The family of this 103-nucleotide RNA is "Plastid-rps12 3UTR RNA". It is one of the family's seed sequences. By type it is a cis-regulatory element. The base pairs follow the family's consensus structure, which was predicted with LocARNA. About the family: Plastid rpl20 is a non-coding RNA (ncRNA) recognised in plastids. It was found in the three prime untranslated region (3UTR) of rps12 gene, its 3UTR location sugest a role in transcript maduration. The literature on the family includes a 2023 paper in Plant Commun by Richter et al., "Retrograde signaling in plants: A critical review focusing on the GUN pathway and beyond".
RNA sequence: GGUUUCUAUUGGUGCAAAUAAAACCACCUCAUUUUCAAUUUGAAAAUGAGAAAGAAUUUCCCAUUGGUAACAAAUUCUUAUCCAUUAAGCGGGGAAAAUACUA
Numbered sequence: 001g002g003u004u005u006c007u008a009u010u011g012g013u014g015c016a017a018a019u020a021a022a023a024c025c026a027c028c029u030c031a032u033u034u035u036c037a038a039u040u041u042g043a044a045a046a047u048g049a050g051a052a053a054g055a056a057u058u059u060c061c062c063a064u065u066g067g068u069a070a071c072a073a074a075u076u077c078u079u080a081u082c083c084a085u086u087a088a089g090c091g092g093g094g095a096a097a098a099u100a101c102u103a
Base pairs, nucleotide, nucleotide: 009023010022059094060093061092062091063085064084066082067081068080069079070078